serC leader: a 52-nucleotide sequence from Rhodobacteraceae bacterium KLH11. It scores 64 bits against the family's covariance model. The pairing is the family consensus, mapped onto this sequence. From the family's description: This family is a putative regulatory RNA structure that is found upstream of the serC-serA operon in some alpha-proteobacteria. The final stem of the structure overlaps the ribosome binding site of the serC reading frame. Taxonomically the source falls in Paracoccaceae (Bacteria, Pseudomonadati, Pseudomonadota, Alphaproteobacteria).
RNA sequence: UCAUGGGACACCCCUCCCCAACGAGGGGCGUGUAUCUGGAAGGGUAAUACAG
Numbered sequence: 001u002c003a004u005g006g007g008a009c010a011c012c013c014c015u016c017c018c019c020a021a022c023g024a025g026g027g028g029c030g031u032g033u034a035u036c037u038g039g040a041a042g043g044g045u046a047a048u049a050c051a052g
Base pairs, nucleotide, nucleotide: 011028012027013026014025015024016023033046034045035044036043037042
On this family, see Corbino et al., Genome Biol 2005: "Evidence for a second class of S-adenosylmethionine riboswitches and other regulatory RNA motifs in alpha-proteobacteria".